[Rfam]
RNA sequence: AUGGUGUUUAUGAUGUAGCUAGAUUAAAGCCUUCAAGGCAUCUAGUUGCUGAUACAUACCAU
Dot-bracket structure: (((((.........((((((((((.....(((...))).))))))))))........)))))
Numbered sequence: 001a002u003g004g005u006g007u008u009u010a011u012g013a014u015g016u017a018g019c020u021a022g023a024u025u026a027a028a029g030c031c032u033u034c035a036a037g038g039c040a041u042c043u044a045g046u047u048g049c050u051g052a053u054a055c056a057u058a059c060c061a062u
Stems, first nucleotide, its partner, number of pairs: 001062005015049010030038003